A member of the RNA family "msiK RNA" from Streptomyces sp. SID3343, 58 nucleotides long.
By type it is a cis-regulatory element.
Taxonomically the source falls in Streptomyces (Bacteria, Bacillati, Actinomycetes, Streptomycetaceae).

RNA sequence: UCCCAGCAUCCUCCACUCGGAUCGUCCGGCACGUUCCUGCCGGUGGAAGGACACAUUC
Number, nucleotide and partner (000 for none) at each position: 001u000002c000003c000004c000005a000006g000007c000008a000009u050010c049011c000012u047013c046014c045015a044016c000017u000018c000019g000020g000021a000022u000023c000024g000025u000026c043027c042028g041029g040030c039031a038032c000033g000034u000035u000036c000037c000038u031039g030040c029041c028042g027043g026044u015045g014046g013047a012048a000049g010050g009051a000052c000053a000054c000055a000056u000057u000058c000